[Rfam]
The family of this 70-nucleotide RNA from Chlorobium sp. is "Chlorobi-1 RNA". The source organism's lineage runs through Bacteria, Pseudomonadati, Chlorobiota, Chlorobiales and Chlorobium.
RNA sequence: GAAAAUCCUCACGCCCGUGAGGAUGAACAGGUGUAAUGGGGGACAUCUGUUCGAUAUAAAAAAAGCGGCU
Numbered sequence: 001g002a003a004a005a006u007c008c009u010c011a012c013g014c015c016c017g018u019g020a021g022g023a024u025g026a027a028c029a030g031g032u033g034u035a036a037u038g039g040g041g042g043a044c045a046u047c048u049g050u051u052c053g054a055u056a057u058a059a060a061a062a063a064a065g066c067g068g069c070u
Stems, first nucleotide, its partner, number of pairs: 005024008025052010
Dot-bracket structure: ....((((((((....))))))))((((((((((........))))))))))..................